[Rfam]
RNA: Brucella sRNA 121
Organism: Brucella suis
RNA sequence: UGACGUCCUACAUAUUAGGGCAGGCAGAGCCAUAUGAAUGGGCAUCGAGUGAUAGGUUUAUGAGGCGCAUCAAUACAAUCAUGCAGGGCAAGACCAAUGGGGGGAACGGGCCGGAA
Numbered sequence: 001u002g003a004c005g006u007c008c009u010a011c012a013u014a015u016u017a018g019g020g021c022a023g024g025c026a027g028a029g030c031c032a033u034a035u036g037a038a039u040g041g042g043c044a045u046c047g048a049g050u051g052a053u054a055g056g057u058u059u060a061u062g063a064g065g066c067g068c069a070u071c072a073a074u075a076c077a078a079u080c081a082u083g084c085a086g087g088g089c090a091a092g093a094c095c096a097a098u099g100g101g102g103g104g105a106a107c108g109g110g111c112c113g114g115a116a
Stems, first nucleotide, its partner, number of pairs: 005021006024084003027080002033075003038070003042066002045063002049061004087112003092107001094103002